[Rfam]
RNA: Small nucleolar RNA SNORD26
Organism: Fregata magnificens
RNA sequence: CUGCGGGGAUGACCCCACGGAACUCUCUCUUGCUGAUAGCCCCGUGGAGAAGCUUUUUUCCCAGGCACUGAGUGGC
Numbered sequence: 001c002u003g004c005g006g007g008g009a010u011g012a013c014c015c016c017a018c019g020g021a022a023c024u025c026u027c028u029c030u031u032g033c034u035g036a037u038a039g040c041c042c043c044g045u046g047g048a049g050a051a052g053c054u055u056u057u058u059u060c061c062c063a064g065g066c067a068c069u070g071a072g073u074g075g076c
Stems, first nucleotide, its partner, number of pairs: 001075004